[Rfam]
RNA sequence: AUAAAAAAGCUGUCAAUUCCAUAGACAGCAGGUGCAAAUGCACGAGCAUUGCUUAAAGUAAGCCUGCCGAGGAAAUGAUGAAAUAGCAUAUCUAUGACUUUUCAUCUGCUCUUUUCCCUCGGUGGUCCCCCACUGGGAGAAAAGAGCUUUUUUAAGUUUUCG
Numbered sequence: 001a002u003a004a005a006a007a008a009g010c011u012g013u014c015a016a017u018u019c020c021a022u023a024g025a026c027a028g029c030a031g032g033u034g035c036a037a038a039u040g041c042a043c044g045a046g047c048a049u050u051g052c053u054u055a056a057a058g059u060a061a062g063c064c065u066g067c068c069g070a071g072g073a074a075a076u077g078a079u080g081a082a083a084u085a086g087c088a089u090a091u092c093u094a095u096g097a098c099u100u101u102u103c104a105u106c107u108g109c110u111c112u113u114u115u116c117c118c119u120c121g122g123u124g125g126u127c128c129c130c131c132a133c134u135g136g137g138a139g140a141a142a143a144g145a146g147c148u149u150u151u152u153u154a155a156g157u158u159u160u161c162g
Stems, first nucleotide, its partner, number of pairs: 028067006034052003108147009
Dot-bracket structure: ...........................(((((((((.............))).........))))))........................................(((((((((......................)))))))))...............
This 162-nucleotide sequence from Clostridium sp. CAG:169 belongs to the Rfam family "Ribosomal protein L10 leader". Rfam describes the family as follows. This family is a putative r-protein leader autoregulatory structure found in B. subtilis and other low-GC Gram-positive bacteria. It is annotated as a cis-regulatory leader. Gene Ontology term of the family: regulation of gene expression.